[Rfam]
RNA sequence: AGCAGAGUAGAAUUGUGUGCGUUAAGUGCCUGGUGAACAGGGAGUUGUCAUCAGGACGAAAAGGUUUCUUGCGGUACAUGAUUCGCAUCCCGCUGUU
Numbered sequence: 001a002g003c004a005g006a007g008u009a010g011a012a013u014u015g016u017g018u019g020c021g022u023u024a025a026g027u028g029c030c031u032g033g034u035g036a037a038c039a040g041g042g043a044g045u046u047g048u049c050a051u052c053a054g055g056a057c058g059a060a061a062a063g064g065u066u067u068c069u070u071g072c073g074g075u076a077c078a079u080g081a082u083u084c085g086c087a088u089c090c091c092g093c094u095g096u097u
Stems, first nucleotide, its partner, number of pairs: 001097005010084010020073003026057002029055008040090003044086001061070003
Description
The record is a 97-nucleotide sequence from Eubacterium sp. CAG:86, which matches "THF (Tetrahydrofolate) riboswitch aptamer" in Rfam. Rfam links the family to the GO term tetrahydrofolate metabolic process. The family's consensus secondary structure is taken from published work. The match comes from Rfam's covariance-model search (89 bits).